A member of the RNA family "Makes More Granules Regulator RNA (mmgR)" from Novosphingobium malaysiense, 79 nucleotides long.
The source organism's lineage runs through Bacteria, Pseudomonadota, Alphaproteobacteria, Sphingomonadales and Novosphingobium.
The family's RNA type in Rfam is small RNA.
The base pairs follow the family's consensus structure.
Its family is annotated with protein binding, DNA-templated transcription, termination and response to nitrogen compound in the Gene Ontology.
[Rfam]
RNA sequence: CGGAAGGGCCUUUCAGGCAUCCUCUCCCAAAAAACUUCCAUAGGGCUGGUCCUCGGACCGGCCCUUUUUUUUCGUCAUG
Numbered sequence: 001c002g003g004a005a006g007g008g009c010c011u012u013u014c015a016g017g018c019a020u021c022c023u024c025u026c027c028c029a030a031a032a033a034a035c036u037u038c039c040a041u042a043g044g045g046c047u048g049g050u051c052c053u054c055g056g057a058c059c060g061g062c063c064c065u066u067u068u069u070u071u072u073c074g075u076c077a078u079g
Stems, first nucleotide, its partner, number of pairs: 008018004043064009